[Rfam]
RNA sequence: AGCAGAGUAAGUGCAGGUGCGCAGGAAAAGGCUGGCCCUUUUCCUCCAGUGCCGGAUGAACGGGGAGUUGUCAUCCGGACGAAAAGCAGGAAUGCUUGCGGUGCCUGUGCUGCAUCCCGCUGCU
Numbered sequence: 001a002g003c004a005g006a007g008u009a010a011g012u013g014c015a016g017g018u019g020c021g022c023a024g025g026a027a028a029a030g031g032c033u034g035g036c037c038c039u040u041u042u043c044c045u046c047c048a049g050u051g052c053c054g055g056a057u058g059a060a061c062g063g064g065g066a067g068u069u070g071u072c073a074u075c076c077g078g079a080c081g082a083a084a085a086g087c088a089g090g091a092a093u094g095c096u097u098g099c100g101g102u103g104c105c106u107g108u109g110c111u112g113c114a115u116c117c118c119g120c121u122g123c124u
Base pairs, nucleotide, nucleotide: 001124002123003122004121005120010111011110012109013108014107015106016105017104018103019102020100021099022098049080050079052078053077054076055075056074057073058072059071063117064116065115067113084097085096086095087094
RNA: THF (Tetrahydrofolate) riboswitch aptamer
Organism: Dialister succinatiphilus